[Rfam]
RNA sequence: AUGGUCUGUGGAAAGGCUCCUGUGUUGUUGAACUUGCCCAGUUGUGGGUGCAGCUAUGUACCAGGCAGCCCAAGGCCGACAUAAAGUAAAUUCCCAGAAGUCUUCCCUAGGUUUUGAAUUUGCAGUAACAGGUGUGAGCAUUCCAGCAGCAGUUUGGUGAUCAGAAAUGAAAGCUAAAGGAG
Numbered sequence: 001a002u003g004g005u006c007u008g009u010g011g012a013a014a015g016g017c018u019c020c021u022g023u024g025u026u027g028u029u030g031a032a033c034u035u036g037c038c039c040a041g042u043u044g045u046g047g048g049u050g051c052a053g054c055u056a057u058g059u060a061c062c063a064g065g066c067a068g069c070c071c072a073a074g075g076c077c078g079a080c081a082u083a084a085a086g087u088a089a090a091u092u093c094c095c096a097g098a099a100g101u102c103u104u105c106c107c108u109a110g111g112u113u114u115u116g117a118a119u120u121u122g123c124a125g126u127a128a129c130a131g132g133u134g135u136g137a138g139c140a141u142u143c144c145a146g147c148a149g150c151a152g153u154u155u156g157g158u159g160a161u162c163a164g165a166a167a168u169g170a171a172a173g174c175u176a177a178a179g180g181a182g
Base pairs, nucleotide, nucleotide: 004080005079006078008076009075015070016069017068018067019065020064021063022062024061025060027054028053029052030051032049033048034047093111094110097106099104119177120176122174123173126172129169130168135163136162137161139159140158141157142156145154146153147152
Dot-bracket structure: ...(((.((.....((((((((.((.((((.(((............))).)))).....)))))).))))....)).)))............((..(.(....).)...)).......((.((..(..((....(((.((((..(((....))).)))).)))....))..))).)).....
Small Cajal body specific RNA 16: a 182-nucleotide RNA sequence from Macaca mulatta. scaRNAs are a specific class of small nuclear RNAs which localise to the Cajal bodies and guide the modification of RNA polymerase II transcribed spliceosomal RNAs U1, U2, U4, U5 and U12. ACA47 belongs to the H/ACA box class of guide RNAs as it has the predicted hairpin-hinge-hairpin-tail structure, the conserved H/ACA-box motifs and is found associated with GAR1. ACA47 is predicted to guide the pseudouridylation of residue U5 of the U1 spliceosomal snRNA. The family's RNA type in Rfam is small Cajal body RNA. The family's consensus secondary structure was predicted with RNAfold. On this family, see Darzacq et al., EMBO J 2002: "Cajal body-specific small nuclear RNAs: a novel class of 2'-O-methylation and pseudouridylation guide RNAs". Rfam's curators put it in the seed alignment. Rfam 15.1 lists 790 matches to the family in 514 species.